[Rfam]
RNA sequence: CCCGAGCUGUCCAACGCCGCAACCUAAUGCGAGUCCACUACUGUGGGUGGCAGCAAGUAGCGCCAUACGGGGAGUAGGGGCGACUACGUCAUCGCCGGACGUUUCUGCCGGCAAA
Numbered sequence: 001c002c003c004g005a006g007c008u009g010u011c012c013a014a015c016g017c018c019g020c021a022a023c024c025u026a027a028u029g030c031g032a033g034u035c036c037a038c039u040a041c042u043g044u045g046g047g048u049g050g051c052a053g054c055a056a057g058u059a060g061c062g063c064c065a066u067a068c069g070g071g072g073a074g075u076a077g078g079g080g081c082g083a084c085u086a087c088g089u090c091a092u093c094g095c096c097g098g099a100c101g102u103u104u105c106u107g108c109c110g111g112c113a114a115a
Stems, first nucleotide, its partner, number of pairs: 033048006057087004061082004066076003094112005
A member of the RNA family "Mahella-1 RNA" from Mahella australiensis, 115 nucleotides long.
The source organism's lineage runs through Bacteria, Bacillati, Mahellales, Mahella and Mahella australiensis.
It is one of the family's seed sequences.
The base pairs follow the family's consensus structure, which is taken from published work.